This 143-nucleotide RNA from Priestia filamentosa belongs to the Rfam family "c-di-AMP riboswitch aptamer (ydaO/yuaA leader)". The match comes from Rfam's covariance-model search (98 bits).
RNA sequence: CACCUUAUAUCGCUUAAUCUGUAAGGAGUGGGGGACCCAAUUUUUGUGCUUUGUCACUAGGGGUGAAUCCUUUUAAAAAGGUAGGGCUACUCUAAAGGCCCGAAUCCGACAGCUAACCUCAUCAGCGUUUAUAGAGAAGGUUU
Numbered sequence: 001c002a003c004c005u006u007a008u009a010u011c012g013c014u015u016a017a018u019c020u021g022u023a024a025g026g027a028g029u030g031g032g033g034g035a036c037c038c039a040a041u042u043u044u045u046g047u048g049c050u051u052u053g054u055c056a057c058u059a060g061g062g063g064u065g066a067a068u069c070c071u072u073u074u075a076a077a078a079a080g081g082u083a084g085g086g087c088u089a090c091u092c093u094a095a096a097g098g099c100c101c102g103a104a105u106c107c108g109a110c111a112g113c114u115a116a117c118c119u120c121a122u123c124a125g126c127g128u129u130u131a132u133a134g135a136g137a138a139g140g141u142u143u
Stems, first nucleotide, its partner, number of pairs: 011127004018027003028122006038060001061107003069081004084101004

Annotation: The source organism's lineage runs through Bacteria, Bacillota, Bacilli, Caryophanales and Priestia.